[Rfam]
RNA sequence: UAAAGAUAAAGGCAAACUUCUCCGAAAGGGAAGGACGCAAAGCCACGGGUCUACUAUUCAUUGUUUGAAUUAUGACAGCCGGGCUACUAAA
Numbered sequence: 001u002a003a004a005g006a007u008a009a010a011g012g013c014a015a016a017c018u019u020c021u022c023c024g025a026a027a028g029g030g031a032a033g034g035a036c037g038c039a040a041a042g043c044c045a046c047g048g049g050u051c052u053a054c055u056a057u058u059c060a061u062u063g064u065u066u067g068a069a070u071u072a073u074g075a076c077a078g079c080c081g082g083g084c085u086a087c088u089a090a091a
Stems, first nucleotide, its partner, number of pairs: 012038002017033004022029002041085004046081003049076003056070004

Shown here is a 91-nucleotide RNA sequence from Domibacillus iocasae, a member of the family "c-di-GMP-I riboswitch aptamer". The source organism's lineage runs through Bacteria, Bacillati, Bacillota, Bacillaceae and Domibacillus. The base pairs follow the family's consensus structure, which is taken from published work.